[Rfam]
RNA sequence: CAGAUCAUAUGACAACGAUAGAGAGCACGCCUGUAUACAUCUAUAUUCUUGUAUGAAUGACAACGGGCGUGCUCUCUCUCAUUGUCAAUAGAUC
Numbered sequence: 001c002a003g004a005u006c007a008u009a010u011g012a013c014a015a016c017g018a019u020a021g022a023g024a025g026c027a028c029g030c031c032u033g034u035a036u037a038c039a040u041c042u043a044u045a046u047u048c049u050u051g052u053a054u055g056a057a058u059g060a061c062a063a064c065g066g067g068c069g070u071g072c073u074c075u076c077u078c079u080c081a082u083u084g085u086c087a088a089u090a091g092a093u094c
Base pairs, nucleotide, nucleotide: 010087011086012085013084014083017080020077021076023074025072026071027070028069029068030067031066032065033064034063
RNA: MIR535 microRNA precursor family